Rfam assigns this 65-nucleotide RNA from Salmonella enterica to the family "rdlD antitoxin".
The base pairs follow the family's consensus structure.
On this family, see Kawano et al., Mol Microbiol 2002: "Molecular characterization of long direct repeat (LDR) sequences expressing a stable mRNA encoding for a 35-amino-acid cell-killing peptide and a cis-encoded small antisense RNA in Escherichia coli".
Rfam classes the family as an antitoxin RNA.
The organism belongs to Salmonella enterica subsp. enterica serovar Typhi, within Bacteria.
RNA sequence: GUCUGGGGUCAAGUUAGCCCCCGUAAUGUUGCCGGUGAAUACCGAACAAUGUGCGGGGGUUUUCU
Numbered sequence: 001g002u003c004u005g006g007g008g009u010c011a012a013g014u015u016a017g018c019c020c021c022c023g024u025a026a027u028g029u030u031g032c033c034g035g036u037g038a039a040u041a042c043c044g045a046a047c048a049a050u051g052u053g054c055g056g057g058g059g060u061u062u063u064c065u
Stems, first nucleotide, its partner, number of pairs: 016061009027051005033044003